[Rfam]
RNA: FMN riboswitch aptamer (RFN element)
RNA sequence: UAAGUUCUUCGGGGUAGGGUGAAAGUCCCAACCGGCGGUAAUAGUCCGCGACCCACUUGUUAAGUGGCUGAUUUGGUGCAAUUCCAAAACCGACAGUAAAGUCUGGAUGAAAGAAGACGUAU
Numbered sequence: 001u002a003a004g005u006u007c008u009u010c011g012g013g014g015u016a017g018g019g020u021g022a023a024a025g026u027c028c029c030a031a032c033c034g035g036c037g038g039u040a041a042u043a044g045u046c047c048g049c050g051a052c053c054c055a056c057u058u059g060u061u062a063a064g065u066g067g068c069u070g071a072u073u074u075g076g077u078g079c080a081a082u083u084c085c086a087a088a089a090c091c092g093a094c095a096g097u098a099a100a101g102u103c104u105g106g107a108u109g110a111a112a113g114a115a116g117a118c119g120u121a122u
Stems, first nucleotide, its partner, number of pairs: 003120001006117005017029003031102002033092002035049004044090002053067002072088005094105003